The family of this 146-nucleotide RNA from Mobilitalea sibirica is "FMN riboswitch aptamer (RFN element)". Gene Ontology term of the family: FMN binding. Taxonomically the source falls in Mobilitalea (Bacteria, Bacillati, Clostridia, Lachnospirales). Rfam's curators write: The RFN element is a highly conserved domain that is found frequently in the 5'-untranslated regions of prokaryotic mRNAs that encode for flavin mononucleotide (FMN) biosynthesis and transport proteins.
[Rfam]
RNA sequence: GUAAAUCUUCGGGGCAGGGUGAAAUUCCCGACCGGCGGUAAAGUCCGCGACUCAUAGGAAUGGAAGAUAGAUUAACAUUUUAUUUCUGUGAUUGAUUUGGUGAAAUUCCAAUACCGACAGUAAAGUCUGGAUGAGAGAAGAGCAGC
Numbered sequence: 001g002u003a004a005a006u007c008u009u010c011g012g013g014g015c016a017g018g019g020u021g022a023a024a025u026u027c028c029c030g031a032c033c034g035g036c037g038g039u040a041a042a043g044u045c046c047g048c049g050a051c052u053c054a055u056a057g058g059a060a061u062g063g064a065a066g067a068u069a070g071a072u073u074a075a076c077a078u079u080u081u082a083u084u085u086c087u088g089u090g091a092u093u094g095a096u097u098u099g100g101u102g103a104a105a106u107u108c109c110a111a112u113a114c115c116g117a118c119a120g121u122a123a124a125g126u127c128u129g130g131a132u133g134a135g136a137g138a139a140g141a142g143c144a145g146c
Stems, first nucleotide, its partner, number of pairs: 006141005017029003031126002033116002035048004043114002052091014097111004118129003